Pseudomonas sRNA P9: a 79-nucleotide RNA sequence from Thiomonas bhubaneswarensis. On this family, see Livny et al., Nucleic Acids Res 2006: "Identification of 17 Pseudomonas aeruginosa sRNAs and prediction of sRNA-encoding genes in 10 diverse pathogens using the bioinformatic tool sRNAPredict2". From the family's description: This small RNA (sRNA) was computationally identified in the genome of the opportunistic pathogen Pseudomonas aeruginosa and its expression verified by northern blot analysis. P9 appears to be conserved in several Pseudomonas species in addition to Bordetella spp. In both Pseudomonas and Bordetella spp P9 appears to be located upstream of a predicted threonine dehydratase gene. P9 has a predicted Rho independent terminator at the 3' end but the function of P9 is unknown. The family's RNA type in Rfam is non-coding RNA gene. Pairs were carried over by alignment from the consensus structure, which was predicted with RNAalifold.

[Rfam]
RNA sequence: AUCAUCCGUACCACCAUUGAGGUGGCGGGAUAGUUCGCGCGCAACACAGGCCGACAAACCCGCCCUCGAGGCGGGUUUC
Numbered sequence: 001a002u003c004a005u006c007c008g009u010a011c012c013a014c015c016a017u018u019g020a021g022g023u024g025g026c027g028g029g030a031u032a033g034u035u036c037g038c039g040c041g042c043a044a045c046a047c048a049g050g051c052c053g054a055c056a057a058a059c060c061c062g063c064c065c066u067c068g069a070g071g072c073g074g075g076u077u078u079c
Stems, first nucleotide, its partner, number of pairs: 011028002014025004056078009
The source organism's lineage runs through Bacteria, Pseudomonadati, Pseudomonadota, Betaproteobacteria and Thiomonas.